Rfam assigns this 80-nucleotide RNA from Taxus chinensis to the family "Small nucleolar RNA snoR14". Lineage of the source: Eukaryota > Streptophyta > Streptophytina > Euphyllophyta > Taxus. It is annotated as a C/D-box small nucleolar RNA. Clan: SNORD110 clan.
RNA sequence: UCAAUGUGAUGAAUCCUGAAAUGUGCAAACGAACUGAAAAUUCUUUGAUGCGAUUUAUAAUCCCAACAGGUUCUGAUUGA
Numbered sequence: 001u002c003a004a005u006g007u008g009a010u011g012a013a014u015c016c017u018g019a020a021a022u023g024u025g026c027a028a029a030c031g032a033a034c035u036g037a038a039a040a041u042u043c044u045u046u047g048a049u050g051c052g053a054u055u056u057a058u059a060a061u062c063c064c065a066a067c068a069g070g071u072u073c074u075g076a077u078u079g080a
Stems, first nucleotide, its partner, number of pairs: 001080004